[Rfam]
RNA sequence: AUUCUUACAAUGUCUGGUUUAAGUUAACAAACACUUAACCAGACAUUGUAAGAACGG
Numbered sequence: 001a002u003u004c005u006u007a008c009a010a011u012g013u014c015u016g017g018u019u020u021a022a023g024u025u026a027a028c029a030a031a032c033a034c035u036u037a038a039c040c041a042g043a044c045a046u047u048g049u050a051a052g053a054a055c056g057g
Base pairs, nucleotide, nucleotide: 002054003053004052005051006050007049008048009047010046011045013043014042015041016040017039018038019037021035023032024031025030
The record is a 57-nucleotide RNA sequence from Acyrthosiphon pisum, which matches "mir-3015 microRNA precursor family" in Rfam. The match comes from Rfam's covariance-model search (67 bits). Rfam links the family to the GO terms RISC complex and miRNA-mediated post-transcriptional gene silencing. The base pairs follow the family's consensus structure, which was predicted with RNAalifold.